[Rfam]
RNA sequence: CCCGCCACUAUACCAGUCUGCCUGCCGUGGCUCGGUGUAUUCCAGUGGUGAGCUGAGAACAACAUCUCCUCUUAGGAAACAGGGCUGUUCUGUAUGUGAUCAUCCCUGUGCCGAAAGAUGGCAGACAAUC
Number, nucleotide and partner (000 for none) at each position: 001c000002c000003c000004g000005c048006c047007a046008c045009u044010a000011u000012a000013c000014c000015a000016g000017u000018c035019u034020g033021c000022c030023u029024g000025c000026c000027g000028u000029g023030g022031c000032u000033c020034g019035g018036u000037g000038u000039a000040u000041u000042c000043c000044a009045g008046u007047g006048g005049u000050g000051a000052g000053c000054u000055g000056a000057g000058a000059a000060c000061a000062a000063c000064a000065u000066c000067u000068c121069c120070u118071c117072u116073u115074a000075g112076g111077a000078a000079a000080c108081a107082g106083g105084g104085c000086u000087g000088u000089u099090c098091u000092g000093u000094a000095u000096g000097u000098g090099a089100u000101c000102a000103u000104c084105c083106c082107u081108g080109u000110g000111c076112c075113g000114a000115a073116a072117g071118a070119u000120g069121g068122c000123a000124g000125a000126c000127a000128a000129u000130c000

A member of the RNA family "Small nucleolar RNA SNORA65" from Xenopus laevis, 130 nucleotides long. The literature on the family includes a 2001 paper in EMBO J by Huttenhofer et al., "RNomics: an experimental approach that identifies 201 candidates for novel, small, non-messenger RNAs in mouse". It scores 82 bits against the family's covariance model. The family's consensus secondary structure was predicted with RNAalifold. The family is grouped with related families in Rfam's "SNORA65 clan". U65 belongs to the H/ACA class of snoRNAs which are thought to guide the sites of modification of uridines to pseudouridines. Rfam classes the family as an H/ACA-box small nucleolar RNA.